[Rfam]
RNA sequence: UGUGGCCGGGAUCGCCUCCUACCAGCGCGUUGCGCCCGUAGGAGCGCUUGGC
Numbered sequence: 001u002g003u004g005g006c007c008g009g010g011a012u013c014g015c016c017u018c019c020u021a022c023c024a025g026c027g028c029g030u031u032g033c034g035c036c037c038g039u040a041g042g043a044g045c046g047c048u049u050g051g052c
Base pairs, nucleotide, nucleotide: 016044017043018042019041020040021039022038025035026034027033028032
RNA: ffh sRNA